[Rfam]
RNA sequence: UGUAAUUCUCAGGGCGGGGUGCAACUCCCCACCGGCGGUAUUCUGUUAAGACAGAGAGCCCGCGAGCGCCUGCAAGCCAGGGUCAGCAGAUCCGGUUAGAUCCCGGAGCCGACGGUCACAGUCCGGACGAAAGAGGAUUAAC
Numbered sequence: 001u002g003u004a005a006u007u008c009u010c011a012g013g014g015c016g017g018g019g020u021g022c023a024a025c026u027c028c029c030c031a032c033c034g035g036c037g038g039u040a041u042u043c044u045g046u047u048a049a050g051a052c053a054g055a056g057a058g059c060c061c062g063c064g065a066g067c068g069c070c071u072g073c074a075a076g077c078c079a080g081g082g083u084c085a086g087c088a089g090a091u092c093c094g095g096u097u098a099g100a101u102c103c104c105g106g107a108g109c110c111g112a113c114g115g116u117c118a119c120a121g122u123c124c125g126g127a128c129g130a131a132a133g134a135g136g137a138u139u140a141a142c
Base pairs, nucleotide, nucleotide: 003140004139005138006137007136008135009134010133017029018028019027031122032121033111034110035063036062037061038060058109059108066087067086091107092106093105094104095103113125114124115123
Dot-bracket structure: ..((((((((......(((.......))).[[((((((...................[[))))..((..................))...(((((.......)))))]])).(((.....]]))).......))))))))..

A member of the RNA family "FMN riboswitch aptamer (RFN element)" from Denitrovibrio acetiphilus, 142 nucleotides long. The family's consensus secondary structure is taken from published work. The match comes from Rfam's covariance-model search (115 bits).